This 94-nucleotide sequence from Roseibium sp. TrichSKD4 belongs to the Rfam family "Glycine riboswitch aptamer". The pairing is the family consensus, mapped onto this sequence. A search with the family's covariance model found it, with a score of 66 bits.
RNA sequence: GAUGCAUAUGCGGGAGAGGCCGGGUGAAAAGGAUCCUGGCGCCGAAGGAGCAACCGCCCCGGAAACUCUCAGGCAAAAGGACCGCAUGGGCUCA
Dot-bracket structure: ......(((((((......((((............)))).(((((..(((...((.....))...))))).))).......)))))))......